Notes:
The family of this 110-nucleotide RNA from Paenibacillus albicereus is "Guanidine-I riboswitch aptamer". This family represents a conserved RNA structure found upstream of the ykkC and yxkD genes in Bacillus subtilis and related genes in other bacteria. The source organism's lineage runs through Bacteria, Bacillota, Caryophanales, Paenibacillaceae and Paenibacillus.

RNA sequence: GAAUCAGUUGCCUAGGGUUCCGCGGCGUCAGCGAGCGCCGGACUGGUCCGAGAGGGAACGGCACGGCCGACAUGGCCGCGCAGACACGGAGGGACAAAAGCCCGGGAGAU
Numbered sequence: 001g002a003a004u005c006a007g008u009u010g011c012c013u014a015g016g017g018u019u020c021c022g023c024g025g026c027g028u029c030a031g032c033g034a035g036c037g038c039c040g041g042a043c044u045g046g047u048c049c050g051a052g053a054g055g056g057a058a059c060g061g062c063a064c065g066g067c068c069g070a071c072a073u074g075g076c077c078g079c080g081c082a083g084a085c086a087c088g089g090a091g092g093g094a095c096a097a098a099a100g101c102c103c104g105g106g107a108g109a110u
Base pairs, nucleotide, nucleotide: 007059008058009057011055012054015049016048020046021045022043023040024039025038026037027036028035061081062080064078065077066076067075085105087108091103092102093101